[Rfam]
RNA sequence: CUGGCAACAAUAUCCUGAUGCUGCCCGGGUGUGUUAAGCAGAACUCCAGCAUCAGUGAUUUUGUUGCCAG
Numbered sequence: 001c002u003g004g005c006a007a008c009a010a011u012a013u014c015c016u017g018a019u020g021c022u023g024c025c026c027g028g029g030u031g032u033g034u035u036a037a038g039c040a041g042a043a044c045u046c047c048a049g050c051a052u053c054a055g056u057g058a059u060u061u062u063g064u065u066g067c068c069a070g
Base pairs, nucleotide, nucleotide: 006065007064008063009062010061012059013058014057015055016054017053018052019051020050021049022048023047
Dot-bracket structure: .....(((((.((((((((((((.......................))))))))).))).))))).....
Overview: A member of the RNA family "mir-338 microRNA precursor family" from Myripristis murdjan, 70 nucleotides long. Lineage of the source: Eukaryota > Bilateria > Deuterostomia > Craniata > Myripristis.